Annotation
The family of this 88-nucleotide RNA from Caldanaerobacter subterraneus is "c-di-GMP-I riboswitch aptamer". Gene Ontology term of the family: cyclic-di-GMP binding. The organism belongs to Caldanaerobacter subterraneus subsp. tengcongensis, within Bacteria. Rfam's curators put it in the seed alignment.

Nucleotides: 088
Base pairs, nucleotide, nucleotide: 012037013036017032018031019030020029021028022027040082041081042080043079045078046077047076048073049072050071055067056066057065058064
Number, partner (000 for none) and nucleotide at each position: 001000c002000u003000u004000c005000g006000a007000u008000a009000a010000g011000g012037g013036c014000a015000a016000a017032c018031c019030c020029g021028u022027c023000g024000a025000a026000a027022g028021g029020c030019g031018g032017g033000g034000g035000c036013g037012c038000a039000a040082a041081g042080c043079c044000a045078c046077g047076g048073g049072c050071c051000u052000a053000a054000a055067u056066c057065c058064c059000u060000g061000a062000u063000u064058g065057g066056g067055a068000c069000a070000u071050g072049g073048u074000a075000g076047c077046c078045g079043g080042g081041c082040u083000g084000c085000c086000g087000a088000a